The record is an 85-nucleotide RNA sequence from Microbacterium sp. SLBN-146, which matches "Glycine riboswitch aptamer" in Rfam. The match comes from Rfam's covariance-model search (40 bits).
RNA sequence: CCGCUCUGGAAAAGGACUCCGACGUGAGCCCUGCCGAAGGUGAAAGCCCCCGUGGUGAAACUCUCAGGCCAAUGACAGAGGGGGA
Numbered sequence: 001c002c003g004c005u006c007u008g009g010a011a012a013a014g015g016a017c018u019c020c021g022a023c024g025u026g027a028g029c030c031c032u033g034c035c036g037a038a039g040g041u042g043a044a045a046g047c048c049c050c051c052g053u054g055g056u057g058a059a060a061c062u063c064u065c066a067g068g069c070c071a072a073u074g075a076c077a078g079a080g081g082g083g084g085a
Stems, first nucleotide, its partner, number of pairs: 001083002004080005014031002017028001033069003036065002040063001042061001046056002